[Rfam]
RNA sequence: AAAGUUGAGGUAGGUGCGAGAAAUGACGAGAAUCAUCCAAAUCGCGCUCAUUGCCUCCAAUCUGCCUCGACUGGG
Dot-bracket structure: ......(((((((.(..(((.(((((.....................)))))..)))..).))))))).......
Numbered sequence: 001a002a003a004g005u006u007g008a009g010g011u012a013g014g015u016g017c018g019a020g021a022a023a024u025g026a027c028g029a030g031a032a033u034c035a036u037c038c039a040a041a042u043c044g045c046g047c048u049c050a051u052u053g054c055c056u057c058c059a060a061u062c063u064g065c066c067u068c069g070a071c072u073g074g075g
Stems, first nucleotide, its partner, number of pairs: 007068007015060001018057003022052005